RNA sequence: CGUGCAUCCAGUAGGAAUUGAACCUACCACUUCGCCAAUUAUGAGUUGGGUGCCUUAACCUCUCAGCCAUGGAUGC
Dot-bracket structure: ...((((((.(((((.......))))).............(((.((((((.(.......).)))))))))))))))
Shown here is a 76-nucleotide RNA from Cuscuta boldinghii, a member of the family "Plastid-ycf2 5UTR RNA".
For this family Rfam cites "Retrograde signaling in plants: A critical review focusing on the GUN pathway and beyond" (Richter et al., Plant Commun, 2023).
The family has 204 seed sequences and 3,521 matches in Rfam 15.1.
Lineage of the source: Eukaryota > Streptophyta > asterids > Convolvulaceae > Cuscuta sect. Ceratophorae.
Rfam's curators put it in the seed alignment.
Rfam describes the family as follows. Plastid ycf2 is a non-coding RNA (ncRNA) recognised in plastids. It was found in the prime untranslated region (5UTR) of ycf2 genes, it presents a tRNA-like motif which suggests it can be involved in mRNA maturation, particularly involved in defining the precise 5' end of the transcript.